[Rfam]
RNA: Ribosomal protein L20 leader
Organism: Lentilactobacillus buchneri
RNA sequence: AAAUGAAAGCAGGAGCUACCCGCUUCUCGCCUGAGUAAAUUUCUGAAUUUGCUGGGCAUGAUAUCGAGUAAGAGCUUGGUCAGCCAAGUUCUUUAAUUGAGAGCGGGCGCAAAUGUGUGCCCGCUCUCUUUCUGCUUU
Number, nucleotide and partner (000 for none) at each position: 001a000002a000003a000004u000005g000006a000007a000008a000009g000010c000011a027012g026013g025014a024015g023016c022017u000018a000019c000020c000021c000022g016023c015024u014025u013026c012027u011028c000029g057030c056031c055032u000033g000034a000035g052036u051037a050038a000039a048040u047041u000042u000043c000044u000045g000046a000047a040048u039049u000050u037051g036052c035053u000054g000055g031056g030057c029058a000059u000060g000061a000062u000063a000064u000065c000066g000067a000068g000069u000070a000071a000072g000073a000074g000075c000076u000077u000078g000079g000080u000081c000082a000083g000084c000085c000086a000087a000088g000089u000090u000091c000092u000093u000094u000095a000096a000097u000098u000099g000100a000101g000102a125103g124104c123105g122106g121107g120108c119109g118110c117111a116112a000113a000114u000115g000116u111117g110118u109119g108120c107121c106122c105123g104124c103125u102126c000127u000128c000129u000130u000131u000132c000133u000134g000135c000136u000137u000138u000